[Rfam]
RNA: Small nucleolar RNA SNORA79
RNA sequence: CGAUAGCAAGUUCCUUUGCUGCCCUAGAGUUACGGGCAUCAGAUUUUUUGCUAUCGGAAAUAACAUUCCGGAUCUCUUCACCCAACGCUACGUAGUGAUGAUUCGCUCUGCCGCAUGGCUUGUAGUCGUUGGUUUUGCAGAUCCGUACACGU
Numbered sequence: 001c002g003a004u005a006g007c008a009a010g011u012u013c014c015u016u017u018g019c020u021g022c023c024c025u026a027g028a029g030u031u032a033c034g035g036g037c038a039u040c041a042g043a044u045u046u047u048u049u050g051c052u053a054u055c056g057g058a059a060a061u062a063a064c065a066u067u068c069c070g071g072a073u074c075u076c077u078u079c080a081c082c083c084a085a086c087g088c089u090a091c092g093u094a095g096u097g098a099u100g101a102u103u104c105g106c107u108c109u110g111c112c113g114c115a116u117g118g119c120u121u122g123u124a125g126u127c128g129u130u131g132g133u134u135u136u137g138c139a140g141a142u143c144c145g146u147a148c149a150c151g152u
Base pairs, nucleotide, nucleotide: 001056002055003054004053005052006051007050008049015043016042017041018040021037022036023035024034070144071143072142073141074140075139082132083131084130085129086128087126088125089124090123091122